[Rfam]
RNA: S4-Clostridia ribosomal protein leader
Organism: Butyrivibrio sp. CB08
RNA sequence: GAAAGAUCGGAUUAAAUACUGUCCGAUUGGGCGUAACAUAGCCCCAAUCAAA
Numbered sequence: 001g002a003a004a005g006a007u008c009g010g011a012u013u014a015a016a017u018a019c020u021g022u023c024c025g026a027u028u029g030g031g032c033g034u035a036a037c038a039u040a041g042c043c044c045c046a047a048u049c050a051a052a
Base pairs, nucleotide, nucleotide: 005028006027007026008025009024010023011022012021029044030043031042032041